RNA sequence: AGUAUCAUGCCGGCGCCAGCUUCCAGUUAUUCUCUAAACUGAUGGAAGCGGUGUGCGUCCAGACGUACGUGAAUAAUUAUUUGAUCGUA
Numbered sequence: 001a002g003u004a005u006c007a008u009g010c011c012g013g014c015g016c017c018a019g020c021u022u023c024c025a026g027u028u029a030u031u032c033u034c035u036a037a038a039c040u041g042a043u044g045g046a047a048g049c050g051g052u053g054u055g056c057g058u059c060c061a062g063a064c065g066u067a068c069g070u071g072a073a074u075a076a077u078u079a080u081u082u083g084a085u086c087g088u089a
Stems, first nucleotide, its partner, number of pairs: 015052003019049003022045002024041004053068006
This 89-nucleotide sequence from Atlantibacter hermannii belongs to the Rfam family "Peptidase-S11 RNA". Lineage of the source: Bacteria > Pseudomonadati > Pseudomonadota > Gammaproteobacteria > Atlantibacter hermannii. It is one of the family's seed sequences.